[Rfam]
This 137-nucleotide RNA sequence from Duffyella gerundensis belongs to the Rfam family "RtT RNA". For this family Rfam cites "A novel RNA product of the tyrT operon of Escherichia coli" (Bosl and Kersten, Nucleic Acids Res, 1991).

Nucleotides: 137
Stems, first nucleotide, its partner, number of pairs: 015128007023120001033096001036093001040091001042089002047065007071084005
Number, partner (000 for none) and nucleotide at each position: 001000u002000u003000g004000c005000u006000u007000u008000u009000c010000u011000g012000c013000a014000c015128g016127u017126g018125c019124a020123g021122g022000g023120u024000u025000u026000g027000a028000a029000c030000c031000u032000g033096c034000a035000g036093c037000a038000g039000g040091u041000u042089c043088g044000a045000c046000a047065a048064c049063a050062u051061g052060g053059c054000c055000g056000g057000g058000a059053g060052c061051c062050a063049u064048g065047u066000u067000g068000g069000c070000u071084g072083a073082u074081g075080c076000g077000u078000c079000a080075g081074c082073a083072u084071c085000a086000c087000c088043c089042g090000c091040a092000g093036g094000g095000c096033g097000a098000g099000g100000c101000g102000c103000a104000c105000g106000a107000u108000g109000c110000g111000c112000c113000g114000a115000g116000g117000c118000a119000u120023a121000u122021c123020c124019u125018g126017c127016a128015c129000g130000a131000c132000c133000c134000a135000c136000c137000a

Notes: Rfam's curators write: This family represents a bacterial cis-regulatory element known as RtT RNA. The exact function of RtT is unknown although it is thought that it may be involved in changing the cellular response in relation to amino acid starvation.